[Rfam]
RNA sequence: AAUGCACACAAAACCCAAAGAUCAUUACAUGUGUUGUGAUCUUGCUUACUGUGCAGACAAAAAAAGGUACCUUGUCGCCUUUCACAUGCUGAUGUGCAGUUGAAAGUGAAUUCAGGGUUUGACAUUU
Number, nucleotide and partner (000 for none) at each position: 001a000002a000003u055004g054005c053006a052007c051008a050009c000010a000011a000012a000013a000014c000015c000016c000017a000018a000019a000020g041021a040022u039023c038024a037025u036026u000027a034028c033029a000030u000031g000032u000033g028034u027035u000036g025037u024038g023039a022040u021041c020042u000043u000044g000045c000046u000047u000048a000049c000050u008051g007052u006053g005054c004055a003056g000057a000058c000059a000060a000061a000062a000063a000064a000065a000066g000067g120068u000069a118070c117071c116072u115073u114074g000075u000076c000077g000078c000079c106080u105081u104082u103083c102084a101085c000086a000087u098088g097089c096090u000091g000092a000093u000094g000095u000096g089097c088098a087099g000100u000101u084102g083103a082104a081105a080106g079107u000108g000109a000110a000111u000112u000113c000114a073115g072116g071117g070118u069119u000120u067121g000122a000123c000124a000125u000126u000127u000
RNA: Small nucleolar RNA SNORA68
Organism: Polypterus senegalus